A member of the RNA family "Plastid-psbA-4 3UTR RNA" from Banisteriopsis caapi, 56 nucleotides long. Plastid psbA-4 is a non-coding RNA (ncRNA) present in plastids. A reference for the family is Richter et al. (2023), "Retrograde signaling in plants: A critical review focusing on the GUN pathway and beyond", Plant Commun. It is annotated as a cis-regulatory element. NCBI's taxonomy places the organism under Eukaryota, Embryophyta, Spermatophyta, Mesangiospermae, Banisteriopsis.
RNA sequence: AAAUAAGGAGCAAUAGCUAAUCUCUUGAUAGAACAAGAGAUUAGCUAUUGCUCCUU
Numbered sequence: 001a002a003a004u005a006a007g008g009a010g011c012a013a014u015a016g017c018u019a020a021u022c023u024c025u026u027g028a029u030a031g032a033a034c035a036a037g038a039g040a041u042u043a044g045c046u047a048u049u050g051c052u053c054c055u056u
Stems, first nucleotide, its partner, number of pairs: 005056011019042002022039006